[Rfam]
RNA sequence: UUAUACUUACUCCCCUUAAACCAAGACCUAUAGGGAGUAUAAAAACGUCUUUCAUACCUGUGUCUAAGGGUGAUACAGGAAUAGUAAAACCA
Numbered sequence: 001u002u003a004u005a006c007u008u009a010c011u012c013c014c015c016u017u018a019a020a021c022c023a024a025g026a027c028c029u030a031u032a033g034g035g036a037g038u039a040u041a042a043a044a045a046c047g048u049c050u051u052u053c054a055u056a057c058c059u060g061u062g063u064c065u066a067a068g069g070g071u072g073a074u075a076c077a078g079g080a081a082u083a084g085u086a087a088a089a090c091c092a
Stems, first nucleotide, its partner, number of pairs: 010037005017032002023051005058078007
RNA: PhotoRC-II RNA